mir-30 microRNA precursor family: a 75-nucleotide sequence from Chanos chanos. The family's consensus secondary structure was predicted with PFOLD. This family consists of the mammalian microRNA (miRNA) precursor mir-30a. Animal miRNAs are transcribed as ~70nt precursors and subsequently processed by the Dicer enzyme to give a ~22nt product. In this case the mature sequence comes from both the 3' (miR-30) and 5' (mir-97-6) arms of the precursor. The literature on the family includes a 2001 paper in Science by Lagos-Quintana et al., "Identification of novel genes coding for small expressed RNAs". The match comes from Rfam's covariance-model search (60 bits). Gene Ontology terms of the family: RISC complex and gene silencing by miRNA.
[Rfam]
RNA sequence: GUAGUCAUUGUAAACAUCCUACACUCAGCUAUAGUCGCAAUUUAAGGCUGGGGGGAGGGUGUUUGCUUUGACUGG
Number, nucleotide and partner (000 for none) at each position: 001g000002u074003a073004g072005u071006c070007a000008u000009u000010g066011u065012a064013a063014a062015c061016a060017u059018c058019c057020u056021a000022c054023a000024c052025u051026c050027a049028g048029c047030u046031a000032u000033a000034g000035u000036c000037g000038c000039a000040a000041u000042u000043u000044a000045a000046g030047g029048c028049u027050g026051g025052g024053g000054g022055g000056a020057g019058g018059g017060u016061g015062u014063u013064u012065g011066c010067u000068u000069u000070g006071a005072c004073u003074g002075g000